The record is a 76-nucleotide RNA sequence from Tateyamaria sp. ANG-S1, which matches "L2-Alphaproteobacteria ribosomal protein leader" in Rfam. For this family Rfam cites "Discovery of 20 novel ribosomal leader candidates in bacteria and archaea" (Eckert and Weinberg, BMC Microbiol, 2020). The source organism's lineage runs through Bacteria, Pseudomonadati, Pseudomonadota, Roseobacteraceae and Tateyamaria. Rfam's curators put it in the seed alignment.

RNA sequence: GGGCACCUUCGGGGGCCUUUAACCAUAGGCGGGGGUGAUCGCACCCAUCGUCGUUUAGCAAAACGGAAGACAGUAA
Dot-bracket structure: ((((.(((...))))))).........(((((...............)))))........................